[Rfam]
The family of this 85-nucleotide sequence from Lachnospiraceae bacterium 3_1_57FAA_CT1 is "c-di-GMP-I riboswitch aptamer". The match comes from Rfam's covariance-model search (68 bits).
RNA sequence: AACUACAUUCGGCAAACUUAUUGAAAAGUAAGGACGCAAAGCUACAGGGCCUUCCCCUUAAAAAGGAUGGCAGCCAGCUGCCGGU
Numbered sequence: 001a002a003c004u005a006c007a008u009u010c011g012g013c014a015a016a017c018u019u020a021u022u023g024a025a026a027a028g029u030a031a032g033g034a035c036g037c038a039a040a041g042c043u044a045c046a047g048g049g050c051c052u053u054c055c056c057c058u059u060a061a062a063a064a065g066g067a068u069g070g071c072a073g074c075c076a077g078c079u080g081c082c083g084g085u
Base pairs, nucleotide, nucleotide: 012037013036017032018031019030020029021028022027040079041078042077043076047075048074049071050070051069056066057065058064059063
The organism belongs to Lachnospiraceae, within Bacteria.